[Rfam]
RNA sequence: AAACAACCCCCUAUGUUUUGAUUCUUUGGCAGUUUUGGAUCCCCAGUCCAUUGUUGACUCGGUCAACGCUGAUGUGGCACCCUAAGUGAAGUGCCACGUGUCAAUUUUUUUUUUUUUUUUUGUCUUGGGGGUCCAAAACUGCCAAAGAAUCAAAACAUAGAGGGCUGUUU
Numbered sequence: 001a002a003a004c005a006a007c008c009c010c011c012u013a014u015g016u017u018u019u020g021a022u023u024c025u026u027u028g029g030c031a032g033u034u035u036u037g038g039a040u041c042c043c044c045a046g047u048c049c050a051u052u053g054u055u056g057a058c059u060c061g062g063u064c065a066a067c068g069c070u071g072a073u074g075u076g077g078c079a080c081c082c083u084a085a086g087u088g089a090a091g092u093g094c095c096a097c098g099u100g101u102c103a104a105u106u107u108u109u110u111u112u113u114u115u116u117u118u119u120u121u122g123u124c125u126u127g128g129g130g131g132u133c134c135a136a137a138a139c140u141g142c143c144a145a146a147g148a149a150u151c152a153a154a155a156c157a158u159a160g161a162g163g164g165c166u167g168u169u170u
Stems, first nucleotide, its partner, number of pairs: 001170002004167002007164002012159034072099002075096006
RNA: MIR2619 microRNA precursor family
Organism: Medicago truncatula